[Rfam]
Notes: The family of this 54-nucleotide RNA sequence from Salmo trutta is "UnaL2 LINE 3' element". A search with the family's covariance model found it, with a score of 62 bits. Pairs were carried over by alignment from the consensus structure, which is taken from published work. Rfam classes the family as a cis-regulatory element. Lineage of the source: Eukaryota > Euteleostomi > Osteoglossocephalai > Salmoninae > Salmo.
Nucleotides: 054
Base pairs, nucleotide, nucleotide: 013043014041015040016039022034023033024032025031
Number, partner (000 for none) and nucleotide at each position: 001000u002000g003000c004000a005000c006000g007000c008000a009000u010000g011000a012000c013043u014041g015040u016039a017000a018000g019000u020000c021000a022034c023033u024032u025031u026000g027000g028000a029000u030000a031025a032024a033023a034022g035000c036000a037000u038000c039016u040015g041014c042000u043013a044000a045000a046000u047000g048000g049000a050000u051000u052000u053000a054000c